[Rfam]
RNA sequence: GUCGAUGAGGAUGUAAUCCAAGUGAAUGAGGUGCAGUGGACCCGAGACCCUGUUUUUCAGGGAGAACCCCUUGGCAUAAGCUGCAAUUUCCUUGAAUUUAAUGGAUUUUGCUGAGAC
Numbered sequence: 001g002u003c004g005a006u007g008a009g010g011a012u013g014u015a016a017u018c019c020a021a022g023u024g025a026a027u028g029a030g031g032u033g034c035a036g037u038g039g040a041c042c043c044g045a046g047a048c049c050c051u052g053u054u055u056u057u058c059a060g061g062g063a064g065a066a067c068c069c070c071u072u073g074g075c076a077u078a079a080g081c082u083g084c085a086a087u088u089u090c091c092u093u094g095a096a097u098u099u100a101a102u103g104g105a106u107u108u109u110g111c112u113g114a115g116a117c
Stems, first nucleotide, its partner, number of pairs: 001117003048062005
The record is a 117-nucleotide sequence from Raphanus sativus, which matches "Small nucleolar RNA Z278" in Rfam. A search with the family's covariance model found it, with a score of 50 bits. The family's RNA type in Rfam is C/D-box small nucleolar RNA. The organism belongs to Raphanus, within Eukaryota. About the family: snoZ278 is a C/D box small nucleolar RNA. Its methylation guide targets have not been reported. Its family is annotated with RNA processing and nucleolus in the Gene Ontology.